This 173-nucleotide RNA from Dermatophilus congolensis belongs to the Rfam family "c-di-AMP riboswitch aptamer (ydaO/yuaA leader)". Lineage of the source: Bacteria > Actinomycetota > Actinomycetes > Dermatophilaceae > Dermatophilus. It scores 54 bits against the family's covariance model. Gene Ontology terms of the family: cyclic-di-AMP binding and regulation of gene expression.

RNA sequence: CGUGAUCCGGGACCUACCCGGACCAGACGAAGGCGGGGGAACCAUAUGCUCCGAUCACCAUGAUCGGAGCGGCGGUCACGCUCCAGUGGCCUGGGGGUAAAGGCGAGCAUUUCGCCCGGGCACCUGGCGCCCGAACCCGACAGCUAACCCCGUAGGCGCUCGUCAGGAGAGGA
Numbered sequence: 001c002g003u004g005a006u007c008c009g010g011g012a013c014c015u016a017c018c019c020g021g022a023c024c025a026g027a028c029g030a031a032g033g034c035g036g037g038g039g040a041a042c043c044a045u046a047u048g049c050u051c052c053g054a055u056c057a058c059c060a061u062g063a064u065c066g067g068a069g070c071g072g073c074g075g076u077c078a079c080g081c082u083c084c085a086g087u088g089g090c091c092u093g094g095g096g097g098u099a100a101a102g103g104c105g106a107g108c109a110u111u112u113c114g115c116c117c118g119g120g121c122a123c124c125u126g127g128c129g130c131c132c133g134a135a136c137c138c139g140a141c142a143g144c145u146a147a148c149c150c151c152g153u154a155g156g157c158g159c160u161c162g163u164c165a166g167g168a169g170a171g172g173a
Stems, first nucleotide, its partner, number of pairs: 001032001003030001033153006043094001095138003103115004118132004